[Rfam]
RNA sequence: UGUAGAACUAUGUACCAUGCACAUCACUUAGAUGGAUUCCAGAAAGUAACAACCCAG
Numbered sequence: 001u002g003u004a005g006a007a008c009u010a011u012g013u014a015c016c017a018u019g020c021a022c023a024u025c026a027c028u029u030a031g032a033u034g035g036a037u038u039c040c041a042g043a044a045a046g047u048a049a050c051a052a053c054c055c056a057g
Stems, first nucleotide, its partner, number of pairs: 019037001022034004

This 57-nucleotide RNA from Ziziphus jujuba belongs to the Rfam family "Plastid-ndhJ 3UTR RNA". Pairs were carried over by alignment from the consensus structure, which was predicted with LocARNA. Rfam classes the family as a cis-regulatory element. The family has 50 seed sequences and 869 matches in Rfam 15.1. Plastid ndhJ is a non-coding RNA (ncRNA) present in plastids. It was identified as a short stem-loop motif in the 3 prime untranslate region (3UTR) of ndhJ gene.